[Rfam]
RNA sequence: CCCAGUGUUUGGCAACAACCGACGCCGGGGGCAGAAGUCAGCCGAGGCCAUAGUAGCCAAACGCUGGCCUGUAAUGGGCCAGACAAGGUGAAGGGC
Dot-bracket structure: .(...((.(((....))).))..).............((....)).(((......(((........(((.......))).......)))....)))
Shown here is a 96-nucleotide RNA from Nodosilinea sp. LEGE 07088, a member of the family "Group II catalytic intron D1-D4-1". Gene Ontology term of the family: Group II intron splicing.